Notes
c-di-AMP riboswitch aptamer (ydaO/yuaA leader): a 163-nucleotide RNA from Arthrobacter sp. UKPF54-2. The organism belongs to Arthrobacter, within Bacteria. The base pairs follow the family's consensus structure. It scores 57 bits against the family's covariance model.
RNA sequence: GGGAUCCGAAUGCAACCUUCUGGCAGAGACGGGGAAACCACUUAUGACCUGCCGCUCCGGCGGGUCUUGGGGUGAAGCCGCACAGCCCGCUCUGACGGGUCCGCGGCCGGGUGCCUCCCAUCCGAAUCCGACAGCUCACCUCGCAGGCAUUGGGAGAGGCUAC
Numbered sequence: 001g002g003g004a005u006c007c008g009a010a011u012g013c014a015a016c017c018u019u020c021u022g023g024c025a026g027a028g029a030c031g032g033g034g035a036a037a038c039c040a041c042u043u044a045u046g047a048c049c050u051g052c053c054g055c056u057c058c059g060g061c062g063g064g065u066c067u068u069g070g071g072g073u074g075a076a077g078c079c080g081c082a083c084a085g086c087c088c089g090c091u092c093u094g095a096c097g098g099g100u101c102c103g104c105g106g107c108c109g110g111g112u113g114c115c116u117c118c119c120a121u122c123c124g125a126a127u128c129c130g131a132c133a134g135c136u137c138a139c140c141u142c143g144c145a146g147g148c149a150u151u152g153g154g155a156g157a158g159g160c161u162a163c
Base pairs, nucleotide, nucleotide: 006147007146011028013026030143031142032141033140034139039069040068070129071128072127078106079105080104081103109123110122111121112120